Notes
The family of this 72-nucleotide RNA sequence from Pipistrellus kuhlii is "tRNA". The match comes from Rfam's covariance-model search (63 bits). The base pairs follow the family's consensus structure, which is taken from published work. The family's RNA type in Rfam is transfer RNA. The source organism's lineage runs through Eukaryota, Chordata, Gnathostomata, Amniota and Pipistrellus.
[Rfam]
RNA sequence: GGGGUUAUAGCUCAGGGGUAGAGCAUUUGACUAUAGAUCAAGAGGUCUCUGGUUCAAAUCCUGGUGACCCCA
Numbered sequence: 001g002g003g004g005u006u007a008u009a010g011c012u013c014a015g016g017g018g019u020a021g022a023g024c025a026u027u028u029g030a031c032u033a034u035a036g037a038u039c040a041a042g043a044g045g046u047c048u049c050u051g052g053u054u055c056a057a058a059u060c061c062u063g064g065u066g067a068c069c070c071c072a
Stems, first nucleotide, its partner, number of pairs: 001071007010024004026042005048064002051061002